About this RNA
The record is a 126-nucleotide sequence from Virgibacillus sp. SK37, which matches "Ribosomal protein L20 leader" in Rfam.
RNA sequence: UGAGACAAGUAGAAGCACCCGCUUCUCACCUGAUCGACACCUUUUGGUAGUUGACUGGUUCUGAACUCUUUUAAUAUAUUAUUGGAGACGUGUGGGUGCAGUAUGUACCGACACUUUUUUAAUGAC
Numbered sequence: 001u002g003a004g005a006c007a008a009g010u011a012g013a014a015g016c017a018c019c020c021g022c023u024u025c026u027c028a029c030c031u032g033a034u035c036g037a038c039a040c041c042u043u044u045u046g047g048u049a050g051u052u053g054a055c056u057g058g059u060u061c062u063g064a065a066c067u068c069u070u071u072u073a074a075u076a077u078a079u080u081a082u083u084g085g086a087g088a089c090g091u092g093u094g095g096g097u098g099c100a101g102u103a104u105g106u107a108c109c110g111a112c113a114c115u116u117u118u119u120u121a122a123u124g125a126c
Stems, first nucleotide, its partner, number of pairs: 011026006028059003036052003039048002091113003095109006